[Rfam]
RNA: Small nucleolar RNA SNORA58
Organism: Suricata suricatta
RNA sequence: GGGCACACCCGUAGACCUCGCCUGGCGCUGCCUGUGGCCGGGCGAGGGGGACAGCGUGUGCAAGAGUGAUUGGCGUUCCUGCCGGCCCCAGCCGGCUCGCUCGCCGGCUGGGUAAAUGCAGUGCACCUGACAUUC
Numbered sequence: 001g002g003g004c005a006c007a008c009c010c011g012u013a014g015a016c017c018u019c020g021c022c023u024g025g026c027g028c029u030g031c032c033u034g035u036g037g038c039c040g041g042g043c044g045a046g047g048g049g050g051a052c053a054g055c056g057u058g059u060g061c062a063a064g065a066g067u068g069a070u071u072g073g074c075g076u077u078c079c080u081g082c083c084g085g086c087c088c089c090a091g092c093c094g095g096c097u098c099g100c101u102c103g104c105c106g107g108c109u110g111g112g113u114a115a116a117u118g119c120a121g122u123g124c125a126c127c128u129g130a131c132a133u134u135c
Stems, first nucleotide, its partner, number of pairs: 003061006016047009072127002075124001077123001080120003092111005